[Rfam]
RNA sequence: AUGGCAGAACGGAUAGUCGCUGGUGGAGAAAUCCACGGGAGGAAAGUCCGGGCACCACAGAGCAGGGUGGUUCGUAACGCGAACCGGGGGCAACCCCAGUGCAAGUGCAACAGAGAGCAGACCGCCGGGCAUCGGCCCGGUAAGGGUGAAAGGGUGGUGUAAGAGACCACCGGUUCCCCUGGUGACAGGGGAAGCCAGGUAAACCACACCCGGUGCAAGACCAUAUAGGAAGGCAGAUGGAGUGGCUCGCUUCGCCUUCGGGUAGGUUGCUUGAGCUGUCGGGUGACUGACAGCCUAGAGAAAUGACUAUCACCCCCCUUGGGGGUACAGAACCCGGCUUACAGUUCUGCCAUAUCA
Numbered sequence: 001a002u003g004g005c006a007g008a009a010c011g012g013a014u015a016g017u018c019g020c021u022g023g024u025g026g027a028g029a030a031a032u033c034c035a036c037g038g039g040a041g042g043a044a045a046g047u048c049c050g051g052g053c054a055c056c057a058c059a060g061a062g063c064a065g066g067g068u069g070g071u072u073c074g075u076a077a078c079g080c081g082a083a084c085c086g087g088g089g090g091c092a093a094c095c096c097c098a099g100u101g102c103a104a105g106u107g108c109a110a111c112a113g114a115g116a117g118c119a120g121a122c123c124g125c126c127g128g129g130c131a132u133c134g135g136c137c138c139g140g141u142a143a144g145g146g147u148g149a150a151a152g153g154g155u156g157g158u159g160u161a162a163g164a165g166a167c168c169a170c171c172g173g174u175u176c177c178c179c180u181g182g183u184g185a186c187a188g189g190g191g192a193a194g195c196c197a198g199g200u201a202a203a204c205c206a207c208a209c210c211c212g213g214u215g216c217a218a219g220a221c222c223a224u225a226u227a228g229g230a231a232g233g234c235a236g237a238u239g240g241a242g243u244g245g246c247u248c249g250c251u252u253c254g255c256c257u258u259c260g261g262g263u264a265g266g267u268u269g270c271u272u273g274a275g276c277u278g279u280c281g282g283g284u285g286a287c288u289g290a291c292a293g294c295c296u297a298g299a300g301a302a303a304u305g306a307c308u309a310u311c312a313c314c315c316c317c318c319u320u321g322g323g324g325g326u327a328c329a330g331a332a333c334c335c336g337g338c339u340u341a342c343a344g345u346u347c348u349g350c351c352a353u354a355u356c357a
Stems, first nucleotide, its partner, number of pairs: 001353010011342001012311007020039002023036005044340003048337005053215004060248004065211005070084005085099001086097004100206002105204002107200002122145002124141007153171006173195001174193008219268004229259006239253005275294008
Bacterial RNase P class A: a 357-nucleotide sequence from Desulfurispirillum indicum. Pairs were carried over by alignment from the consensus structure, which is taken from published work. Gene Ontology terms of the family: ribonuclease P activity, tRNA processing and dimeric ribonuclease P complex. The organism belongs to Desulfurispirillum indicum, within Bacteria. It scores 329 bits against the family's covariance model.